The family of this 107-nucleotide RNA from Nocardioides anomalus is "Glycine riboswitch aptamer". Taxonomically the source falls in Nocardioides (Bacteria, Bacillati, Actinomycetota, Actinomycetes). The family has 44 seed sequences and 9,425 matches in Rfam 15.1.
[Rfam]
RNA sequence: CCAUCCCGCACGGGAGAGUCUCCGGGACCUGAGCUGGUGAGGCCCGGAGCGCCGAAGGGGCAACUCCUCCCCGGAACCUCUCAGGCGCCAAGGACCGUGGGGGACAG
Dot-bracket structure: .....((.(((((......(((((((................))))))).(((((..(((...((.......))...))))).)))........))))).)).....